[Rfam]
RNA sequence: CCAGCUAUAAAGAGGGCCAAAGCAGCAGUGUUCAUAUUAUGGCCUCUGUCAGAUUCUUUGUAUCUCUGAAUCCUGCU
Dot-bracket structure: .............(((((..[[[[[.[(((.......)))))))).....((((.(...).)))).....].]]]]]
Background: Shown here is a 77-nucleotide RNA sequence from Gopherus evgoodei, a member of the family "Mammalian CPEB3 ribozyme". The family's consensus secondary structure is taken from published work. It scores 50 bits against the family's covariance model.